[Rfam]
RNA sequence: UUGCCGUGGGUAAGUCCUCUACGACCAGCUCCCAUUGACUCCCCCAGGUUGGGAACAAAGCAAGGGUAUUUGGUUGAGCGGUGCGAUAGAGGUAGCUUACCCAUUU
Numbered sequence: 001u002u003g004c005c006g007u008g009g010g011u012a013a014g015u016c017c018u019c020u021a022c023g024a025c026c027a028g029c030u031c032c033c034a035u036u037g038a039c040u041c042c043c044c045c046a047g048g049u050u051g052g053g054a055a056c057a058a059a060g061c062a063a064g065g066g067u068a069u070u071u072g073g074u075u076g077a078g079c080g081g082u083g084c085g086a087u088a089g090a091g092g093u094a095g096c097u098u099a100c101c102c103a104u105u106u
Stems, first nucleotide, its partner, number of pairs: 008102008017091005022085002024082002

Shown here is a 106-nucleotide RNA from Sphingobacterium cellulitidis, a member of the family "Bacteroidales small SRP".
Gene Ontology terms of the family: SRP-dependent cotranslational protein targeting to membrane, signal sequence recognition and signal recognition particle, plasma membrane targeting.
The family's consensus secondary structure is taken from published work.
By type it is a non-coding RNA gene.
Taxonomically the source falls in Sphingobacterium (Bacteria, Pseudomonadati, Sphingobacteriia, Sphingobacteriaceae).
Clan: SRP clan.